[Rfam]
RNA sequence: CAUUGUGGUGGUUUCUGUAUUUGGCAGAUCUGUAAGUGUGGCAGAGCGGCCUUAAACUACCACAGAGAUCAGAAAGGAGAAGGCAGGGCUGAAAACUUUGAAGCUUUUAGUUUUCAGCUUUUUGUUCAGCUCCUACAAAA
Numbered sequence: 001c002a003u004u005g006u007g008g009u010g011g012u013u014u015c016u017g018u019a020u021u022u023g024g025c026a027g028a029u030c031u032g033u034a035a036g037u038g039u040g041g042c043a044g045a046g047c048g049g050c051c052u053u054a055a056a057c058u059a060c061c062a063c064a065g066a067g068a069u070c071a072g073a074a075a076g077g078a079g080a081a082g083g084c085a086g087g088g089c090u091g092a093a094a095a096c097u098u099u100g101a102a103g104c105u106u107u108u109a110g111u112u113u114u115c116a117g118c119u120u121u122u123u124g125u126u127c128a129g130c131u132c133c134u135a136c137a138a139a140a
Stems, first nucleotide, its partner, number of pairs: 005063007023051003027047001029045004076133004082090003101123003

A member of the RNA family "Small nucleolar RNA SNORA12" from Tauraco erythrolophus, 140 nucleotides long. The match comes from Rfam's covariance-model search (70 bits). Rfam links the family to the GO terms RNA processing and nucleolus. About the family: U108 belongs to the H/ACA family of snoRNAs. The sequence is predicted to guide the pseudouridylation of the U372 residue in the 28S rRNA subunit. However it has not been reported as a pseudouridylation site. The family's RNA type in Rfam is H/ACA-box small nucleolar RNA. The literature on the family includes a 2005 paper in Nucleic Acids Res by Gu et al., "A novel experimental approach for systematic identification of box H/ACA snoRNAs from eukaryotes". Pairs were carried over by alignment from the consensus structure, which was predicted with RNAalifold. The family has 23 seed sequences and 571 matches in Rfam 15.1.